[Rfam]
Small nucleolar RNA snR8: a 153-nucleotide RNA sequence from Suhomyces tanzawaensis.
On this family, see Parker et al., Mol Cell Biol 1988: "Genetic analysis of small nuclear RNAs in Saccharomyces cerevisiae: viable sextuple mutant".
Rfam classes the family as an H/ACA-box small nucleolar RNA.
It scores 92 bits against the family's covariance model.

RNA sequence: UAGUUCUUUGAUACGAACGCUUCCUAUUCACUGCACCAUACUGUUCAUGUAUGAAUGGAGGGGAAAAGGAAAGCCAGAGCAAUACGAAUAACGACCUCAUACCGAGAUCACUUAACUGUAGUGAUACUUGGAUCUUGCGUUUUCGAUACAGAC
Numbered sequence: 001u002a003g004u005u006c007u008u009u010g011a012u013a014c015g016a017a018c019g020c021u022u023c024c025u026a027u028u029c030a031c032u033g034c035a036c037c038a039u040a041c042u043g044u045u046c047a048u049g050u051a052u053g054a055a056u057g058g059a060g061g062g063g064a065a066a067a068g069g070a071a072a073g074c075c076a077g078a079g080c081a082a083u084a085c086g087a088a089u090a091a092c093g094a095c096c097u098c099a100u101a102c103c104g105a106g107a108u109c110a111c112u113u114a115a116c117u118g119u120a121g122u123g124a125u126a127c128u129u130g131g132a133u134c135u136u137g138c139g140u141u142u143u144c145g146a147u148a149c150a151g152a153c
Stems, first nucleotide, its partner, number of pairs: 019074002022070002031060002034057002037053005085145003091140003102131003106127001107125006114119001